[Rfam]
RNA: MIR6288 microRNA precursor family
Organism: Prunus avium
RNA sequence: CUAAAAUUAGUCACUUGUCACUUUCUAAUUGGUUCUUAGUAUGUUCAAAUUUGUUAAGAAGCAAUUAGAAAAUGACGAGUGGCUAGCCUUUG
Numbered sequence: 001c002u003a004a005a006a007u008u009a010g011u012c013a014c015u016u017g018u019c020a021c022u023u024u025c026u027a028a029u030u031g032g033u034u035c036u037u038a039g040u041a042u043g044u045u046c047a048a049a050u051u052u053g054u055u056a057a058g059a060a061g062c063a064a065u066u067a068g069a070a071a072a073u074g075a076c077g078a079g080u081g082g083c084u085a086g087c088c089u090u091u092g
Stems, first nucleotide, its partner, number of pairs: 003090002007086014022071010033060007